[Rfam]
Rfam assigns this 114-nucleotide RNA from a Polyangiaceae bacterium to the family "SAM (S-adenosyl methionine) riboswitch aptamer". Gene Ontology terms of the family: regulation of gene expression and S-adenosylmethionine metabolic process. The organism belongs to Polyangiaceae, within Bacteria. From the family's description: SAM-IV is a mRNA element that regulates gene expression via direct sensing of S-adenosylmethionine (SAM or AdoMet). SAM-IV riboswitches share conserved nucleotide positions with the previously described SAM-I riboswitches sequence analysis and molecular recognition experiments suggest that SAM-I and SAM-IV riboswitches share similar ligand binding sites, but have different scaffolds.

RNA sequence: GGUCAAGAGUGCCAGCGAGCAGGCCCGGCUAGCUGGACGACAACCCUCCGAACGCGGUGGGGUGCCCCGGGAGAGACCAGGCUGGUCGCAUGUCGCGGCCGGCAAGCGCGGAAC
Numbered sequence: 001g002g003u004c005a006a007g008a009g010u011g012c013c014a015g016c017g018a019g020c021a022g023g024c025c026c027g028g029c030u031a032g033c034u035g036g037a038c039g040a041c042a043a044c045c046c047u048c049c050g051a052a053c054g055c056g057g058u059g060g061g062g063u064g065c066c067c068c069g070g071g072a073g074a075g076a077c078c079a080g081g082c083u084g085g086u087c088g089c090a091u092g093u094c095g096c097g098g099c100c101g102g103c104a105a106g107c108g109c110g111g112a113a114c
Stems, first nucleotide, its partner, number of pairs: 001078004009038001012036005021030002039066001041064001044062003048057002081103009